This 161-nucleotide RNA from Xenorhabdus cabanillasii belongs to the Rfam family "Glm Y RNA activator of glmS mRNA". The family's consensus secondary structure is taken from published work. On this family, see Rivas et al., Curr Biol 2001: "Computational identification of noncoding RNAs in E. coli by comparative genomics". The match comes from Rfam's covariance-model search (137 bits). Its Rfam clan is "Glm clan". This family consists of a number of bacterial RNA genes of around 167 bases in length. The tke1 RNA gene is present in Escherichia coli, Shigella flexneri, Yersinia pestis and Salmonella species where it is found between the yfhK and purL genes.
[Rfam]
RNA sequence: AGUUGCUCAUUCAAUUUUUUAUGUCGGUCCACAAAGUAGGGUGGAAAUAUGCCACAUAAGCCGGGAAUGACGCCAAAGUAAGGUGCCUACCGUCCAAUUAAUGAUAUUCGCUUUCUGGCCUUAUCAAGCAACGGGCGACACGUGGAGUGAGGCACCACCUA
Numbered sequence: 001a002g003u004u005g006c007u008c009a010u011u012c013a014a015u016u017u018u019u020u021a022u023g024u025c026g027g028u029c030c031a032c033a034a035a036g037u038a039g040g041g042u043g044g045a046a047a048u049a050u051g052c053c054a055c056a057u058a059a060g061c062c063g064g065g066a067a068u069g070a071c072g073c074c075a076a077a078g079u080a081a082g083g084u085g086c087c088u089a090c091c092g093u094c095c096a097a098u099u100a101a102u103g104a105u106a107u108u109c110g111c112u113u114u115c116u117g118g119c120c121u122u123a124u125c126a127a128g129c130a131a132c133g134g135g136c137g138a139c140a141c142g143u144g145g146a147g148u149g150a151g152g153c154a155c156c157a158c159c160u161a
Stems, first nucleotide, its partner, number of pairs: 005073002007070006019059006026053003082156007091137005102126005139149003